Background: This 212-nucleotide RNA sequence from Streptomyces alboflavus belongs to the Rfam family "Streptomyces RNA 1601". Rfam's curators write: Identified by deep sequencing of transcriptome at the end of exponential growth phase. Appears longer on northern blot than sequencing transcript. Streptomyces specific. The family's RNA type in Rfam is small RNA. Lineage of the source: Bacteria > Actinomycetota > Actinomycetes > Streptomycetaceae > Streptomyces.
RNA sequence: AACGACCGGCUGGACACCCGCGUGCCAACGCAAGCGUCCGGCCCACAAGUGGAGGCUCCGAUCUCCCACCUGGCCGCUCCAUGGAGCGGCGGGUCACCGGUCAGGCGGACACCGCGCAGCGCGUGAUGCACCGCCCGAUGCGCCCCGUGAUCACCACGGAGGUGCUCCGGUAUUCGUUGGAGCCCCUUCUGUGAUCAGUCGGGGCAUUUUUU
Numbered sequence: 001a002a003c004g005a006c007c008g009g010c011u012g013g014a015c016a017c018c019c020g021c022g023u024g025c026c027a028a029c030g031c032a033a034g035c036g037u038c039c040g041g042c043c044c045a046c047a048a049g050u051g052g053a054g055g056c057u058c059c060g061a062u063c064u065c066c067c068a069c070c071u072g073g074c075c076g077c078u079c080c081a082u083g084g085a086g087c088g089g090c091g092g093g094u095c096a097c098c099g100g101u102c103a104g105g106c107g108g109a110c111a112c113c114g115c116g117c118a119g120c121g122c123g124u125g126a127u128g129c130a131c132c133g134c135c136c137g138a139u140g141c142g143c144c145c146c147g148u149g150a151u152c153a154c155c156a157c158g159g160a161g162g163u164g165c166u167c168c169g170g171u172a173u174u175c176g177u178u179g180g181a182g183c184c185c186c187u188u189c190u191g192u193g194a195u196c197a198g199u200c201g202g203g204g205c206a207u208u209u210u211u212u
Stems, first nucleotide, its partner, number of pairs: 004102006012039004040095005046072002049069004053064002073090007104135005110128002113125003142205006148197003155193003158189005164183005